[Rfam]
The record is a 109-nucleotide RNA, which matches "drum RNA" in Rfam. Rfam describes the family as follows. Firmicutes, Bacteroidetes (1 example), Proteobacteria (2 examples), Spirochaetes (2 examples).
RNA sequence: AUAUGUUGAAAGUAGAUGCUGUAUUGCUAUCAGUAUUUAUUCGAGUAUUCAAAGGUAUGCUUAAUCCUAAAGCAGUGUAGCGAAAAAACGUGAAAGAAAAACACUUGUA
Numbered sequence: 001a002u003a004u005g006u007u008g009a010a011a012g013u014a015g016a017u018g019c020u021g022u023a024u025u026g027c028u029a030u031c032a033g034u035a036u037u038u039a040u041u042c043g044a045g046u047a048u049u050c051a052a053a054g055g056u057a058u059g060c061u062u063a064a065u066c067c068u069a070a071a072g073c074a075g076u077g078u079a080g081c082g083a084a085a086a087a088a089c090g091u092g093a094a095a096g097a098a099a100a101a102c103a104c105u106u107g108u109a
Base pairs, nucleotide, nucleotide: 001048002047003046004045011041012040013039014038015037016036017035018034019033020032021031023076024075025074026073058103059102080091081090082089
Rfam's curators put it in the seed alignment.